[Rfam]
RNA sequence: AUGGAGUAAGCCGAAAAUCCGAAGAAGAGUAGGCA
Numbered sequence: 001a002u003g004g005a006g007u008a009a010g011c012c013g014a015a016a017a018u019c020c021g022a023a024g025a026a027g028a029g030u031a032g033g034c035a
Stems, first nucleotide, its partner, number of pairs: 002021004010034003
DUF805b RNA: a 35-nucleotide RNA sequence. By type it is a cis-regulatory element. Its Rfam clan is "DUF805 clan".